[Rfam]
RNA sequence: GACAAGUCGUUGCUACGGUAAUCCUGCUCAGUACGAGAGGAACCGCAGGUUCAGACAUUUGGUUCACGUGCUUGGCUGAUAAGCCAAUGGUGCGAGGCUACCAUCUGAGGGAUUAUGGCUGAACGCCUCUAAGUCAGAAUCCCGCCCGGAUAUGCGACGAUACUACUCGCACUUCUCGCGUCGGGAGGCAACGAUAUGGGGGUCCUCCGGGCCCUCAGGUCGAGCCGCAGUAAGAGGUCUUUGCCGUCCCGCCGAUCAGCGCGGGCGGGGGCCUGUACGAUAUUCACCCCAUGCGGCGUGGAGGUGUCAAAUCAUUUGUAGACGACUUAGUUCUCGGUCGGGGUGUCGUAAUCAGUAGAGCAGCCACCUCACUGCGAUCUGUUGAGACUCAGCCUUUGACCAGGAGAUUUGU
Numbered sequence: 001g002a003c004a005a006g007u008c009g010u011u012g013c014u015a016c017g018g019u020a021a022u023c024c025u026g027c028u029c030a031g032u033a034c035g036a037g038a039g040g041a042a043c044c045g046c047a048g049g050u051u052c053a054g055a056c057a058u059u060u061g062g063u064u065c066a067c068g069u070g071c072u073u074g075g076c077u078g079a080u081a082a083g084c085c086a087a088u089g090g091u092g093c094g095a096g097g098c099u100a101c102c103a104u105c106u107g108a109g110g111g112a113u114u115a116u117g118g119c120u121g122a123a124c125g126c127c128u129c130u131a132a133g134u135c136a137g138a139a140u141c142c143c144g145c146c147c148g149g150a151u152a153u154g155c156g157a158c159g160a161u162a163c164u165a166c167u168c169g170c171a172c173u174u175c176u177c178g179c180g181u182c183g184g185g186a187g188g189c190a191a192c193g194a195u196a197u198g199g200g201g202g203u204c205c206u207c208c209g210g211g212c213c214c215u216c217a218g219g220u221c222g223a224g225c226c227g228c229a230g231u232a233a234g235a236g237g238u239c240u241u242u243g244c245c246g247u248c249c250c251g252c253c254g255a256u257c258a259g260c261g262c263g264g265g266c267g268g269g270g271g272c273c274u275g276u277a278c279g280a281u282a283u284u285c286a287c288c289c290c291a292u293g294c295g296g297c298g299u300g301g302a303g304g305u306g307u308c309a310a311a312u313c314a315u316u317u318g319u320a321g322a323c324g325a326c327u328u329a330g331u332u333c334u335c336g337g338u339c340g341g342g343g344u345g346u347c348g349u350a351a352u353c354a355g356u357a358g359a360g361c362a363g364c365c366a367c368c369u370c371a372c373u374g375c376g377a378u379c380u381g382u383u384g385a386g387a388c389u390c391a392g393c394c395u396u397u398g399a400c401c402a403g404g405a406g407a408u409u410u411g412u
Stems, first nucleotide, its partner, number of pairs: 006161008016148003021051001023049005052107004060100003067094005072087006109143003116136005171305006309410005315329001318326001336401005341395003345388002353381003357378001360375004
Description
The family of this 412-nucleotide part of an RNA from Aplysia californica is "Eukaryotic large subunit ribosomal RNA". The organism belongs to Aplysia, within Eukaryota. The base pairs follow the family's consensus structure, which is taken from published work. Clan: LSU clan.